[Rfam]
RNA sequence: AAUCAUCGCUUCUAGGGUUCCGGUUCUCGUUUUUAACGAUGAAUGUCUGGUCCGAGAGAAGCAGCUAGAACCUAGAGCCGAAUGUUGUGCUUCGGUUGUUUAUCUAGUGACACGGCGGGACAAAAGCCCGGGAGGA
Numbered sequence: 001a002a003u004c005a006u007c008g009c010u011u012c013u014a015g016g017g018u019u020c021c022g023g024u025u026c027u028c029g030u031u032u033u034u035a036a037c038g039a040u041g042a043a044u045g046u047c048u049g050g051u052c053c054g055a056g057a058g059a060a061g062c063a064g065c066u067a068g069a070a071c072c073u074a075g076a077g078c079c080g081a082a083u084g085u086u087g088u089g090c091u092u093c094g095g096u097u098g099u100u101u102a103u104c105u106a107g108u109g110a111c112a113c114g115g116c117g118g119g120a121c122a123a124a125a126g127c128c129c130g131g132g133a134g135g136a
Stems, first nucleotide, its partner, number of pairs: 008062005015053002020050002022047001023044004064108006111131001113134001117129003
Dot-bracket structure: .......(((((..((...(((((((..............))))..).)).))....))))).((((((.................................))))))..(.[...(((.......))).)..]..
RNA: Guanidine-I riboswitch aptamer